A member of the RNA family "Fluoride riboswitch aptamer (crcB RNA motif)" from Chitinophaga flava, 69 nucleotides long. A search with the family's covariance model found it, with a score of 45 bits. The family has 289 seed sequences and 2,293 matches in Rfam 15.1. For this family Rfam cites "Widespread genetic switches and toxicity resistance proteins for fluoride" (Baker et al., Science, 2012).
RNA sequence: GCAACUACAGGAAAUGGUGUCUUCCUGCUCCGAACCGUUUCGUCCGAAACUGAUGGCGCCUACAAAUCA
Numbered sequence: 001g002c003a004a005c006u007a008c009a010g011g012a013a014a015u016g017g018u019g020u021c022u023u024c025c026u027g028c029u030c031c032g033a034a035c036c037g038u039u040u041c042g043u044c045c046g047a048a049a050c051u052g053a054u055g056g057c058g059c060c061u062a063c064a065a066a067u068c069a
Stems, first nucleotide, its partner, number of pairs: 010025004016060006037050004